[Rfam]
Rfam assigns this 137-nucleotide sequence from Sporomusa malonica to the family "c-di-AMP riboswitch aptamer (ydaO/yuaA leader)". From the family's description: This family represents a conserved RNA structure found upstream of the ydaO and yuaA genes in Bacillus subtilis and related genes in other bacteria. Taxonomically the source falls in Sporomusa (Bacteria, Bacillati, Bacillota, Selenomonadales).
RNA sequence: AAGAAUAAUAGGCCGAGUUCCAUAUACGGAAGCGGAGGAACCACUUUUUGGGGUUAAUUCUGUCUUAGCAGAAGGGAUGUCUUAUCUCUUGCCAUCCUACCCGUCAGCUAACUUCGUAGGCCAAAGCAAGGGGUCGU
Numbered sequence: 001a002a003g004a005a006u007a008a009u010a011g012g013c014c015g016a017g018u019u020c021c022a023u024a025u026a027c028g029g030a031a032g033c034g035g036a037g038g039a040a041c042c043a044c045u046u047u048u049u050g051g052g053g054u055u056a057a058u059u060c061u062g063u064c065u066u067a068g069c070a071g072a073a074g075g076g077a078u079g080u081c082u083u084a085u086c087u088c089u090u091g092c093c094a095u096c097c098u099a100c101c102c103g104u105c106a107g108c109u110a111a112c113u114u115c116g117u118a119g120g121c122c123a124a125a126g127c128a129a130g131g132g133g134u135c136g137u
Stems, first nucleotide, its partner, number of pairs: 011122004018031003032117006042050002051102003059072004075097004